Rfam assigns this 130-nucleotide sequence to the family "FMN riboswitch aptamer (RFN element)".
RNA sequence: CAGCAUUCUCAGGGCGGGGUGAAAUUCCCCACCGGCGGUAUAGCCCGCGAGCGCUUUCAGGGUCUGAAAGGUCAGCAGAUCCGGUGUAAUUCCGGAGCCGACGGUAUAGUCCGGAUGGUAGAGAAUGGGA
Numbered sequence: 001c002a003g004c005a006u007u008c009u010c011a012g013g014g015c016g017g018g019g020u021g022a023a024a025u026u027c028c029c030c031a032c033c034g035g036c037g038g039u040a041u042a043g044c045c046c047g048c049g050a051g052c053g054c055u056u057u058c059a060g061g062g063u064c065u066g067a068a069a070g071g072u073c074a075g076c077a078g079a080u081c082c083g084g085u086g087u088a089a090u091u092c093c094g095g096a097g098c099c100g101a102c103g104g105u106a107u108a109g110u111c112c113g114g115a116u117g118g119u120a121g122a123g124a125a126u127g128g129g130a
Stems, first nucleotide, its partner, number of pairs: 004127007017029003031110002033100002035048004043098002051076002080096005102113003
Its family is annotated with FMN binding in the Gene Ontology. From the family's description: The RFN element is a highly conserved domain that is found frequently in the 5'-untranslated regions of prokaryotic mRNAs that encode for flavin mononucleotide (FMN) biosynthesis and transport proteins.